[Rfam]
RNA sequence: UUGAAACACCAACCGGGAUAAAAGACCCCCUUUUAUCCCGGUUUGUAAUACCAACCGGGAUAAAAGGGGGUCUUUUAUCCCGGUUGGUGUUUCAAA
Numbered sequence: 001u002u003g004a005a006a007c008a009c010c011a012a013c014c015g016g017g018a019u020a021a022a023a024g025a026c027c028c029c030c031u032u033u034u035a036u037c038c039c040g041g042u043u044u045g046u047a048a049u050a051c052c053a054a055c056c057g058g059g060a061u062a063a064a065a066g067g068g069g070g071u072c073u074u075u076u077a078u079c080c081c082g083g084u085u086g087g088u089g090u091u092u093c094a095a096a
Base pairs, nucleotide, nucleotide: 003093004092005091006090007089008088009087010086011085012084013083014082015081016080017079018078019077020076021075022074023073024072025071026070027069029067030066034062035061036060038058039057045051046050
The family of this 96-nucleotide sequence from Setaria viridis is "MIR5387 microRNA precursor family". Pairs were carried over by alignment from the consensus structure, which was predicted with RNAalifold. Taxonomically the source falls in Setaria (Eukaryota, Streptophytina, Tracheophyta, Poales).